Potassium channel RNA editing signal: a 114-nucleotide sequence from Steinernema carpocapsae.
RNA sequence: AUCGGCUACGGGGAUAUGACGCCCCACACAUACCUCGGCCGGAUCAUCGGCUCAGUCUGCGCCCUGGCCGGCGUCCUGACCAUCGCCCUGCCUGUCCCCGUUAUCGUCAGCAAU
Numbered sequence: 001a002u003c004g005g006c007u008a009c010g011g012g013g014a015u016a017u018g019a020c021g022c023c024c025c026a027c028a029c030a031u032a033c034c035u036c037g038g039c040c041g042g043a044u045c046a047u048c049g050g051c052u053c054a055g056u057c058u059g060c061g062c063c064c065u066g067g068c069c070g071g072c073g074u075c076c077u078g079a080c081c082a083u084c085g086c087c088c089u090g091c092c093u094g095u096c097c098c099c100g101u102u103a104u105c106g107u108c109a110g111c112a113a114u
Stems, first nucleotide, its partner, number of pairs: 001114002004111001008107004013102003018097001021095002037077002049063003